[Rfam]
RNA sequence: UUACGAUAAAGGCAAAUCCAGAGUGAUCUGGGGACGCAAAGUAACAGGGUCUUUUAAACACAUAGGGAUGUGGUUUAAGACGAUCUCUUAUCCUUGUAGUGAAAAAGAUAGCCUUACUGCCGAA
Numbered sequence: 001u002u003a004c005g006a007u008a009a010a011g012g013c014a015a016a017u018c019c020a021g022a023g024u025g026a027u028c029u030g031g032g033g034a035c036g037c038a039a040a041g042u043a044a045c046a047g048g049g050u051c052u053u054u055u056a057a058a059c060a061c062a063u064a065g066g067g068a069u070g071u072g073g074u075u076u077a078a079g080a081c082g083a084u085c086u087c088u089u090a091u092c093c094u095u096g097u098a099g100u101g102a103a104a105a106a107g108a109u110a111g112c113c114u115u116a117c118u119g120c121c122g123a124a
Stems, first nucleotide, its partner, number of pairs: 012037002017032006040118004046114003049109007
Dot-bracket structure: ...........((...((((((....))))))...))..((((..((((((((((...............................................)))))))..)))))))......
Rfam assigns this 124-nucleotide RNA from Candidatus Brocadia sapporoensis to the family "c-di-GMP-I riboswitch aptamer". The family's consensus secondary structure is taken from published work. It scores 57 bits against the family's covariance model.